Shown here is a 142-nucleotide sequence from Nelumbo nucifera, a member of the family "mir-166 microRNA precursor family". The source organism's lineage runs through Eukaryota, Mesangiospermae, Proteales, Nelumbonaceae and Nelumbo. From the family's description: This family represents the plant microRNA (miRNA) precursor mir-166. A search with the family's covariance model found it, with a score of 84 bits.
RNA sequence: UUUGAGGGGAAUGUUGUCUGGCUCGAGGCCACCAACACUAUCAACUGAGGCCGAUGGAUCGAUCUCAUCAGAUCUAGAUAACAUAGCUGAGAUCACUCAAUUAGGUGUAGGUGUCGUCGGACCAGGCUUCAUUCCCCUCAAU
Numbered sequence: 001u002u003u004g005a006g007g008g009g010a011a012u013g014u015u016g017u018c019u020g021g022c023u024c025g026a027g028g029c030c031a032c033c034a035a036c037a038c039u040a041u042c043a044a045c046u047g048a049g050g051c052c053g054a055u056g057g058a059u060c061g062a063u064c065u066c067a068u069c070a071g072a073u074c075u076a077g078a079u080a081a082c083a084u085a086g087c088u089g090a091g092a093u094c095a096c097u098c099a100a101u102u103a104g105g106u107g108u109a110g111g112u113g114u115c116g117u118c119g120g121a122c123c124a125g126g127c128u129u130c131a132u133u134c135c136c137c138u139c140a141a142u
Stems, first nucleotide, its partner, number of pairs: 002141012016127006024119003

Rfam links the family to the GO terms miRNA-mediated post-transcriptional gene silencing and RISC complex.